Shown here is a 96-nucleotide RNA from Cocos nucifera, a member of the family "MIR535 microRNA precursor family". The organism belongs to Cocos, within Eukaryota. Rfam links the family to the GO terms RISC complex and miRNA-mediated post-transcriptional gene silencing. A reference for the family is Zeng et al. (2010), "Conservation and divergence of microRNAs and their functions in Euphorbiaceous plants", Nucleic Acids Res. Pairs were carried over by alignment from the consensus structure, which was predicted with RNAalifold.
RNA sequence: GGAGCUCAGUGACAACGGGAGAAAGCACGCCAGUACGCAGUCAUGGCCCCAUGCAUGGUUGCCGACCGGCGUGCUCUCUCUCGUUGUCAUCCAAAG
Numbered sequence: 001g002g003a004g005c006u007c008a009g010u011g012a013c014a015a016c017g018g019g020a021g022a023a024a025g026c027a028c029g030c031c032a033g034u035a036c037g038c039a040g041u042c043a044u045g046g047c048c049c050c051a052u053g054c055a056u057g058g059u060u061g062c063c064g065a066c067c068g069g070c071g072u073g074c075u076c077u078c079u080c081u082c083g084u085u086g087u088c089a090u091c092c093a094a095a096g
Base pairs, nucleotide, nucleotide: 010089011088012087013086014085016083017082020079021078025074026073027072028071029070030069031068033066034065
Dot-bracket structure: .........(((((.((..((...(((((((.((..............................)).)))))))...))..)).))))).......